[Rfam]
Background: The record is a 139-nucleotide RNA sequence from Drosophila kikkawai, which matches "Small nucleolar RNA psi18S-1377" in Rfam. The organism belongs to Sophophora, within Eukaryota. From the family's description: psi18S-1377 is a member of the H/ACA class of snoRNA. This family is responsible for guiding the modification of uridines 1377 and 1279 to pseudouridine in Drosophila 18S rRNA. Pairs were carried over by alignment from the consensus structure, which was predicted with RNAalifold. It is annotated as an H/ACA-box small nucleolar RNA.

RNA sequence: ACGUUCUUGUGUUAUUUGCUGGUUGUUUUCUAUAAACCAGUGAUUGUCAAACAGAACGCAAACCAAAGCAACUAAUCACUCCAUAAUGGUGCGUCCAAUUUAGCCAGGACUACAUCGUUACUAAAUGUAUGCAACAUUC
Numbered sequence: 001a002c003g004u005u006c007u008u009g010u011g012u013u014a015u016u017u018g019c020u021g022g023u024u025g026u027u028u029u030c031u032a033u034a035a036a037c038c039a040g041u042g043a044u045u046g047u048c049a050a051a052c053a054g055a056a057c058g059c060a061a062a063c064c065a066a067a068g069c070a071a072c073u074a075a076u077c078a079c080u081c082c083a084u085a086a087u088g089g090u091g092c093g094u095c096c097a098a099u100u101u102a103g104c105c106a107g108g109a110c111u112a113c114a115u116c117g118u119u120a121c122u123a124a125a126u127g128u129a130u131g132c133a134a135c136a137u138u139c
Stems, first nucleotide, its partner, number of pairs: 002058006010049002016043007085119005093110003